[Rfam]
RNA sequence: CCCUCCUAUUUCUGCCCCGUCUUCCUUAACUUUUGAGUGGAUUAACGGGUUCUAUUAACGGAGAAGAUAAAGCUUGGGAACGGGUGAACCACACUUUUGAUACAACCGUGAUUCUCCUGUUCGCAGGAUCGUGAAGGCUCAUCGGACGAGUUUCGAGCAAUGAUUUCAUUCUUUCGAAACACUCGAUGUCCCGCUACAAUU
Dot-bracket structure: ..((((.........(((((..(((.............)))..).))))..........)))).........((((.(((((((.(((.(((...............))).))).))))))).)))).....(..(...((((......(((((..(.((((....))))..)..)))))....))))..)..).......
Numbered sequence: 001c002c003c004u005c006c007u008a009u010u011u012c013u014g015c016c017c018c019g020u021c022u023u024c025c026u027u028a029a030c031u032u033u034u035g036a037g038u039g040g041a042u043u044a045a046c047g048g049g050u051u052c053u054a055u056u057a058a059c060g061g062a063g064a065a066g067a068u069a070a071a072g073c074u075u076g077g078g079a080a081c082g083g084g085u086g087a088a089c090c091a092c093a094c095u096u097u098u099g100a101u102a103c104a105a106c107c108g109u110g111a112u113u114c115u116c117c118u119g120u121u122c123g124c125a126g127g128a129u130c131g132u133g134a135a136g137g138c139u140c141a142u143c144g145g146a147c148g149a150g151u152u153u154c155g156a157g158c159a160a161u162g163a164u165u166u167c168a169u170u171c172u173u174u175c176g177a178a179a180c181a182c183u184c185g186a187u188g189u190c191c192c193g194c195u196a197c198a199a200u201u
Stems, first nucleotide, its partner, number of pairs: 003063004016049004020044001023041003073127004078122007086114003090110003133194001136191001140188004150180005157173001159170004
A member of the RNA family "Small nucleolar RNA snR43" from Lachancea lanzarotensis, 201 nucleotides long. The literature on the family includes a 1996 paper in Cell by Balakin et al., "The RNA world of the nucleolus: two major families of small RNAs defined by different box elements with related functions". Its family is annotated with RNA processing and nucleolus in the Gene Ontology. It is annotated as an H/ACA-box small nucleolar RNA. Taxonomically the source falls in Lachancea (Eukaryota, Ascomycota, saccharomyceta, Saccharomycetales). The match comes from Rfam's covariance-model search (130 bits).